[Rfam]
RNA sequence: GUAACGUUGAAACAAUUUGACGACUGGACAGGACCCGGGGGCGGUACCCGGCAGCUCCACCAUAAUAAGUUUUGAGGUAAUAAUGGACGAAGUACUACUUUGGCAAUUUAGAAAAUUUUGCGUUGAAUAUAUUUGCAUAAACAAUUAUUCACCGCGACAUGCAAGACUUAUUAUGAUGGGGCUGAAAUAGGAUCGACUGACUGGAUAGAAGAGUGGAGUUACCCGGAUCUAAGCACGGUUAUCGCGAAGAAAAUUGAUAAUUGCAAACGCAAAUUUCAAACCUGAAGCGUUUACAUCUAUAGACAUGUCUAUGGAUAGUGAGCUACUUGCAGCCUAG
Numbered sequence: 001g002u003a004a005c006g007u008u009g010a011a012a013c014a015a016u017u018u019g020a021c022g023a024c025u026g027g028a029c030a031g032g033a034c035c036c037g038g039g040g041g042c043g044g045u046a047c048c049c050g051g052c053a054g055c056u057c058c059a060c061c062a063u064a065a066u067a068a069g070u071u072u073u074g075a076g077g078u079a080a081u082a083a084u085g086g087a088c089g090a091a092g093u094a095c096u097a098c099u100u101u102g103g104c105a106a107u108u109u110a111g112a113a114a115a116u117u118u119u120g121c122g123u124u125g126a127a128u129a130u131a132u133u134u135g136c137a138u139a140a141a142c143a144a145u146u147a148u149u150c151a152c153c154g155c156g157a158c159a160u161g162c163a164a165g166a167c168u169u170a171u172u173a174u175g176a177u178g179g180g181g182c183u184g185a186a187a188u189a190g191g192a193u194c195g196a197c198u199g200a201c202u203g204g205a206u207a208g209a210a211g212a213g214u215g216g217a218g219u220u221a222c223c224c225g226g227a228u229c230u231a232a233g234c235a236c237g238g239u240u241a242u243c244g245c246g247a248a249g250a251a252a253a254u255u256g257a258u259a260a261u262u263g264c265a266a267a268c269g270c271a272a273a274u275u276u277c278a279a280a281c282c283u284g285a286a287g288c289g290u291u292u293a294c295a296u297c298u299a300u301a302g303a304c305a306u307g308u309c310u311a312u313g314g315a316u317a318g319u320g321a322g323c324u325a326c327u328u329g330c331a332g333c334c335u336a337g
Stems, first nucleotide, its partner, number of pairs: 001222005016213002025203003029199003035051005052184007223238003

Overview:
The record is a 337-nucleotide sequence from a Candidatus Pelagibacterales bacterium, which matches "permuted transfer-messenger RNA" in Rfam. Rfam's curators put it in the seed alignment. Bacterial tmRNA, also known as 10Sa RNA or SsrA, is named for its dual tRNA and mRNA-like properties. It is annotated as a non-coding RNA gene.